[Rfam]
RNA sequence: UUCUUAUCAAGAGCAGGUGGAGGGACGAGCCCGAUGAUACCCGGCAACCGAUCCUUAAAGGACACGGUGCUAAUUCUUGCAGCAAGCAGCUGAAAGAUAAGAA
Number, nucleotide and partner (000 for none) at each position: 001u103002u102003c101004u100005u099006a098007u097008c096009a000010a000011g000012a000013g042014c000015a000016g041017g040018u039019g000020g000021a000022g032023g031024g030025a000026c079027g078028a077029g076030c024031c023032c022033g000034a000035u000036g000037a000038u000039a018040c017041c016042c013043g071044g070045c069046a068047a000048c067049c066050g063051a000052u061053c060054c000055u000056u000057a000058a000059a000060g053061g052062a000063c050064a000065c000066g049067g048068u046069g045070c044071u043072a000073a000074u000075u095076c029077u028078u027079g026080c092081a091082g090083c089084a000085a000086g000087c000088a000089g083090c082091u081092g080093a000094a000095a075096g008097a007098u006099a005100a004101g003102a002103a001